[Rfam]
RNA: Small nucleolar RNA snoR138
RNA sequence: AAAGCCUCCGAAUAGUGAGAAGGUGCAAUAUUUGAAUACUUUCUGGUUCAGGCAGAGGCUUAUAUUAAAACUCGAAUCAGUUUUUGAGGGUGAAAAAAAGCUCUCUUUUUUGUACCCAUCAAACUUUUCACUCCUUAUUGGAUAGAUUCGAAGAUGU
Numbered sequence: 001a002a003a004g005c006c007u008c009c010g011a012a013u014a015g016u017g018a019g020a021a022g023g024u025g026c027a028a029u030a031u032u033u034g035a036a037u038a039c040u041u042u043c044u045g046g047u048u049c050a051g052g053c054a055g056a057g058g059c060u061u062a063u064a065u066u067a068a069a070a071c072u073c074g075a076a077u078c079a080g081u082u083u084u085u086g087a088g089g090g091u092g093a094a095a096a097a098a099a100g101c102u103c104u105c106u107u108u109u110u111u112g113u114a115c116c117c118a119u120c121a122a123a124c125u126u127u128u129c130a131c132u133c134c135u136u137a138u139u140g141g142a143u144a145g146a147u148u149c150g151a152a153g154a155u156g157u
Base pairs, nucleotide, nucleotide: 003060004059005058006057007056008055014048015047016046018044019043020042021041023039024038025037073150074149075148076147077146078145080124081123082122088116090115093111094110095109096108097107098106130143132141133140